[Rfam]
RNA sequence: UACAACUGAUAGUUUGAGAAGUGGAAUGAUGGAGUAACGACCUGAAACGCUUCCCUUAAUACCCCGUUAGGCGAGUGGAUAAAGUUCAUGGCCUACAGCACGGAGAGGACGACCGAAGUAUACCCAAACAGAUAAAGCUGUGGAAAAAUUAACAGAGGUGUUAGUUGUGUAUGACAGGUCGGAGGUCUAUAUA
Numbered sequence: 001u002a003c004a005a006c007u008g009a010u011a012g013u014u015u016g017a018g019a020a021g022u023g024g025a026a027u028g029a030u031g032g033a034g035u036a037a038c039g040a041c042c043u044g045a046a047a048c049g050c051u052u053c054c055c056u057u058a059a060u061a062c063c064c065c066g067u068u069a070g071g072c073g074a075g076u077g078g079a080u081a082a083a084g085u086u087c088a089u090g091g092c093c094u095a096c097a098g099c100a101c102g103g104a105g106a107g108g109a110c111g112a113c114c115g116a117a118g119u120a121u122a123c124c125c126a127a128a129c130a131g132a133u134a135a136a137g138c139u140g141u142g143g144a145a146a147a148a149u150u151a152a153c154a155g156a157g158g159u160g161u162u163a164g165u166u167g168u169g170u171a172u173g174a175c176a177g178g179u180c181g182g183a184g185g186u187c188u189a190u191a192u193a
Stems, first nucleotide, its partner, number of pairs: 018053006031043002054185004064103004068095005075089006110181005118172006124143003130139002147166008
RNA: Group II catalytic intron D1-D4-5
Organism: Clostridium perfringens